[Rfam]
Nucleotides: 123
Stems, first nucleotide, its partner, number of pairs: 009024005069123003073119009092107003
Number, partner (000 for none) and nucleotide at each position: 001000g002000u003000u004000g005000a006000g007000g008000c009024u010023c011022c012021a013020u014000c015000u016000a017000c018000a019000a020013a021012u022011g023010g024009a025000u026000a027000a028000u029000u030000c031000u032000u033000u034000a035000g036000u037000a038000u039000u040000u041000a042000g043000u044000c045000u046000a047000g048000a049000c050000c051000u052000a053000g054000u055000u056000u057000a058000g059000u060000a061000a062000u063000a064000g065000u066000a067000a068000a069123a070122a071121a072000c073119g074118a075117g076116c077115a078114a079113u080112a081111u082000a083000a084000g085000c086000c087000u088000u089000c090000u091000u092107u093106u094105u095000a096000a097000c098000u099000u100000g101000a102000a103000g104000a105094a106093g107092g108000c109000u110000u111081a112080u113079a114078u115077u116076g117075c118074u119073c120000a121071u122070u123069u